[Rfam]
RNA: Small nucleolar RNA SNORA74
RNA sequence: UCCAGCAGUAGUCAGCCGUCCAGACAGAUGUGUAGCUGUGACGGUGUUACACUGCUGGGAGAGCAUUGUCUUGUCUUCUUCCCCUGGUGGCCUGUGUCGCUGUUCUAGUGGCAAGGGGCACUGGUGCAAGGCGUGACAGUGCUUCCUUGAGAGUGUGCUGAGCAUUCACUUUGGCUGCUUGGUUCUAGUCUGGGAGCAGACAAU
Numbered sequence: 001u002c003c004a005g006c007a008g009u010a011g012u013c014a015g016c017c018g019u020c021c022a023g024a025c026a027g028a029u030g031u032g033u034a035g036c037u038g039u040g041a042c043g044g045u046g047u048u049a050c051a052c053u054g055c056u057g058g059g060a061g062a063g064c065a066u067u068g069u070c071u072u073g074u075c076u077u078c079u080u081c082c083c084c085u086g087g088u089g090g091c092c093u094g095u096g097u098c099g100c101u102g103u104u105c106u107a108g109u110g111g112c113a114a115g116g117g118g119c120a121c122u123g124g125u126g127c128a129a130g131g132c133g134u135g136a137c138a139g140u141g142c143u144u145c146c147u148u149g150a151g152a153g154u155g156u157g158c159u160g161a162g163c164a165u166u167c168a169c170u171u172u173g174g175c176u177g178c179u180u181g182g183u184u185c186u187a188g189u190c191u192g193g194g195a196g197c198a199g200a201c202a203a204u
Stems, first nucleotide, its partner, number of pairs: 001059009011050002015045006021038003025035001068137003072133005082126001084124002088120002091117003095113007140198007155185001157183001159181006